[Rfam]
RNA: Xanthine riboswitch aptamer (NMT1 RNA)
Nucleotides: 070
Stems, first nucleotide, its partner, number of pairs: 005066004010061001015055001018057002022052002024049004
Number, partner (000 for none) and nucleotide at each position: 001000u002000g003000c004000a005066a006065g007064a008063g009000a010061a011000g012000a013000a014000g015055c016000g017000u018057u019056c020000a021000a022052c023051c024049a025048a026047g027046c028000c029000g030000u031000g032000a033000c034000a035000g036000g037000c038000a039000a040000g041000u042000c043000a044000g045000g046027g047026c048025u049024u050000c051023g052022g053000c054000g055015g056019g057018a058000a059000a060000u061010u062000g063008c064007u065006c066005u067000u068000a069000c070000c